The record is a 100-nucleotide RNA from Ruminococcaceae bacterium AF10-16, which matches "Purine riboswitch aptamer" in Rfam. Its Rfam clan is "Purine riboswitches". The base pairs follow the family's consensus structure, which is taken from published work. Lineage of the source: Bacteria > Bacillati > Bacillota > Clostridia > Oscillospiraceae. It scores 47 bits against the family's covariance model.
[Rfam]
RNA sequence: UAAUGGCAGCGGAGAAAAACUCAUAUAGUUUCGCUUACAUGGCGCGAAAGUUUCUACGGAGCCGCCGAAAGGCUCUGCUAUGGGUGCUCAGCCGGGGGAG
Numbered sequence: 001u002a003a004u005g006g007c008a009g010c011g012g013a014g015a016a017a018a019a020c021u022c023a024u025a026u027a028g029u030u031u032c033g034c035u036u037a038c039a040u041g042g043c044g045c046g047a048a049a050g051u052u053u054c055u056a057c058g059g060a061g062c063c064g065c066c067g068a069a070a071g072g073c074u075c076u077g078c079u080a081u082g083g084g085u086g087c088u089c090a091g092c093c094g095g096g097g098g099a100g
Stems, first nucleotide, its partner, number of pairs: 019085007029049006058076006